[Rfam]
RNA sequence: UGCAAGUUUCAGGGAAGGUGCGAUUCCUUACUGGCGGUAAACCGGCGACCGGGAUUCCCAACGGUCGGUCGGCAAGCCCGCGACCCGCGUCAUGCGGCUGAUCCGGUGAGAAUCCGAAGCCAACGGUCAAAGUCCGGAUGAAAGAAACGAGGU
Numbered sequence: 001u002g003c004a005a006g007u008u009u010c011a012g013g014g015a016a017g018g019u020g021c022g023a024u025u026c027c028u029u030a031c032u033g034g035c036g037g038u039a040a041a042c043c044g045g046c047g048a049c050c051g052g053g054a055u056u057c058c059c060a061a062c063g064g065u066c067g068g069u070c071g072g073c074a075a076g077c078c079c080g081c082g083a084c085c086c087g088c089g090u091c092a093u094g095c096g097g098c099u100g101a102u103c104c105g106g107u108g109a110g111a112a113u114c115c116g117a118a119g120c121c122a123a124c125g126g127u128c129a130a131a132g133u134c135c136g137g138a139u140g141a142a143a144g145a146a147a148c149g150a151g152g153u
Base pairs, nucleotide, nucleotide: 003151006148007147008146009145010144016028017027018026030133031132032122033121034081035080036079037078076120077119085097086096102118104116105115106114124136125135126134